The family of this 364-nucleotide sequence from Nitratidesulfovibrio vulgaris is "Bacterial RNase P class A". The organism belongs to Nitratidesulfovibrio vulgaris, within Bacteria. The family's RNA type in Rfam is ribozyme.
RNA sequence: GGAGCCGGACGGGCUGUCGUCGCGGGCCGCAAGGCCCGGGGAGGAAAGUCCGGGCUCCGCAGGGCAGGACGCUGGGUAACCCCCAGGACGAGCGAUCGUCGGACAGGGCCACAGAAAACAGACCGCCCGGCAGGUUCGCCUGCCGGGUAAGGGUGAAACGGUGGGGUAAGAGCCCACCAGCUGGCGCGGUGACGCACCAGGCUCGGUAACCCCCGUCCGGAGCAAGACCAAAUAGGGAAGCGUACGAGGCCUGCCCGGCCCAUGCUUCCGGGUCGGUUGCUUGAGGGCGUCGGUAACGGCGCUCCUAGAGGAAUGACAGCCACCCGCAAGGGUACAGAACCCGGCUUACAGUCCGACUCCCGAA
Numbered sequence: 001g002g003a004g005c006c007g008g009a010c011g012g013g014c015u016g017u018c019g020u021c022g023c024g025g026g027c028c029g030c031a032a033g034g035c036c037c038g039g040g041g042a043g044g045a046a047a048g049u050c051c052g053g054g055c056u057c058c059g060c061a062g063g064g065c066a067g068g069a070c071g072c073u074g075g076g077u078a079a080c081c082c083c084c085a086g087g088a089c090g091a092g093c094g095a096u097c098g099u100c101g102g103a104c105a106g107g108g109c110c111a112c113a114g115a116a117a118a119c120a121g122a123c124c125g126c127c128c129g130g131c132a133g134g135u136u137c138g139c140c141u142g143c144c145g146g147g148u149a150a151g152g153g154u155g156a157a158a159c160g161g162u163g164g165g166g167u168a169a170g171a172g173c174c175c176a177c178c179a180g181c182u183g184g185c186g187c188g189g190u191g192a193c194g195c196a197c198c199a200g201g202c203u204c205g206g207u208a209a210c211c212c213c214c215g216u217c218c219g220g221a222g223c224a225a226g227a228c229c230a231a232a233u234a235g236g237g238a239a240g241c242g243u244a245c246g247a248g249g250c251c252u253g254c255c256c257g258g259c260c261c262a263u264g265c266u267u268c269c270g271g272g273u274c275g276g277u278u279g280c281u282u283g284a285g286g287g288c289g290u291c292g293g294u295a296a297c298g299g300c301g302c303u304c305c306u307a308g309a310g311g312a313a314u315g316a317c318a319g320c321c322a323c324c325c326g327c328a329a330g331g332g333u334a335c336a337g338a339a340c341c342c343g344g345c346u347u348a349c350a351g352u353c354c355g356a357c358u359c360c361c362g363a364a
Stems, first nucleotide, its partner, number of pairs: 001360004006355005011349001012321007020041002023038006046347003050344005055222004062256004067218005072086005087100005101213002106211002108207003123152002125148009160178006180202001181200004186195003226278004236269006248260004285304008